Shown here is a 90-nucleotide RNA sequence from Paenibacillus dendritiformis, a member of the family "c-di-GMP-I-GGC riboswitch aptamer". The match comes from Rfam's covariance-model search (72 bits). The family's consensus secondary structure is taken from published work. Taxonomically the source falls in Paenibacillus dendritiformis (Bacteria, Bacillota, Bacilli, Paenibacillaceae).

[Rfam]
RNA sequence: CUUGAUAAAGGCAAACUUGUCGAAAGGCAAGGACGCAAAGCCUCGGGCCUAACUCUCCUUCAUGGAGCUAUGGCGGCCGGGUUGCCAUGU
Number, nucleotide and partner (000 for none) at each position: 001c000002u000003u087004g086005a000006u000007a000008a000009a000010g000011g036012c035013a000014a000015a000016c031017u030018u029019g028020u027021c026022g000023a000024a000025a000026g021027g020028c019029a018030a017031g016032g000033a000034c076035g012036c011037a000038a000039a083040g082041c081042c080043u000044c079045g078046g077047g074048c073049c072050u000051a000052a000053c000054u000055c000056u000057c000058c000059u000060u000061c000062a000063u000064g000065g000066a000067g000068c000069u000070a000071u000072g049073g048074c047075g000076g034077c046078c045079g044080g042081g041082u040083u039084g000085c000086c004087a003088u000089g000090u000